[Rfam]
This 157-nucleotide RNA from a Solirubrobacterales bacterium belongs to the Rfam family "c-di-AMP riboswitch aptamer (ydaO/yuaA leader)". Rfam links the family to the GO terms regulation of gene expression and cyclic-di-AMP binding. Lineage of the source: Bacteria > Bacillati > Actinomycetota > Thermoleophilia > Solirubrobacterales. This family represents a conserved RNA structure found upstream of the ydaO and yuaA genes in Bacillus subtilis and related genes in other bacteria.
RNA sequence: ACAUUCCCGGCGCCUAAUCCCGGCCUCCUAGGCACGGGAGCGGAGGAUCCAAAGAGGCUUUCGGAGCCCAGGGGCGAAUCGGUCAACGCUUGGCCGUAGCGCGACUCUUUCCGCGCGAGCCCGUCAGCUAACUCCGCCGGCGCGAGAAAGGGACCCG
Numbered sequence: 001a002c003a004u005u006c007c008c009g010g011c012g013c014c015u016a017a018u019c020c021c022g023g024c025c026u027c028c029u030a031g032g033c034a035c036g037g038g039a040g041c042g043g044a045g046g047a048u049c050c051a052a053a054g055a056g057g058c059u060u061u062c063g064g065a066g067c068c069c070a071g072g073g074g075c076g077a078a079u080c081g082g083u084c085a086a087c088g089c090u091u092g093g094c095c096g097u098a099g100c101g102c103g104a105c106u107c108u109u110u111c112c113g114c115g116c117g118a119g120c121c122c123g124u125c126a127g128c129u130a131a132c133u134c135c136g137c138c139g140g141c142g143c144g145a146g147a148a149a150g151g152g153a154c155c156c157g
Stems, first nucleotide, its partner, number of pairs: 011142004018039005040137006050071001072122003080096004099116004